[Rfam]
RNA sequence: CGUAUGGUGUUUGGCUUCGGGCUGAAUAGCGAUACGGCCUUAUUGUGAGGU
Numbered sequence: 001c002g003u004a005u006g007g008u009g010u011u012u013g014g015c016u017u018c019g020g021g022c023u024g025a026a027u028a029g030c031g032a033u034a035c036g037g038c039c040u041u042a043u044u045g046u047g048a049g050g051u
Stems, first nucleotide, its partner, number of pairs: 001036005007030002011025006